[Rfam]
RNA sequence: UUGCUAGAGAGCUAGGGUUCCGAGCACAAAUGCAUUUUUGUGUUGUCUGGUCCGAGAGCUGUCGGCCGCAUUUAUGCGGCUCCACGGAGGGACAAAAGCCCGGGAGGA
Number, nucleotide and partner (000 for none) at each position: 001u000002u000003g000004c000005u000006a000007g063008a062009g000010a060011g059012c058013u000014a000015g053016g052017g000018u000019u000020c050021c049022g047023a044024g043025c042026a041027c040028a039029a038030a037031u000032g000033c000034a000035u000036u000037u030038u029039u028040g027041u026042g025043u024044u023045g000046u000047c022048u000049g021050g020051u000052c016053c015054g000055a000056g000057a000058g012059c011060u010061g000062u008063c007064g081065g080066c079067c078068g077069c076070a075071u000072u000073u000074a000075u070076g069077c068078g067079g066080c065081u064082c000083c103084a000085c106086g000087g000088a000089g101090g100091g099092a000093c000094a000095a000096a000097a000098g000099c091100c090101c089102g000103g083104g000105a000106g085107g000108a000

A member of the RNA family "Guanidine-I riboswitch aptamer" from Polaromonas vacuolata, 108 nucleotides long.
Gene Ontology term of the family: regulation of gene expression.